[Rfam]
RNA sequence: CCGGGGAGGUCGGAUCCUGGGCUGUGUCGGGCGCCCAGUGCUCCGGGGCCUGCGCUGUUGAUUCGUGCUCCGCCCGCAGCCCCUCCGA
Numbered sequence: 001c002c003g004g005g006g007a008g009g010u011c012g013g014a015u016c017c018u019g020g021g022c023u024g025u026g027u028c029g030g031g032c033g034c035c036c037a038g039u040g041c042u043c044c045g046g047g048g049c050c051u052g053c054g055c056u057g058u059u060g061a062u063u064c065g066u067g068c069u070c071c072g073c074c075c076g077c078a079g080c081c082c083c084u085c086c087g088a
Stems, first nucleotide, its partner, number of pairs: 002087005009080002011076003017072001019071003023067004027061002030056005038050001040049003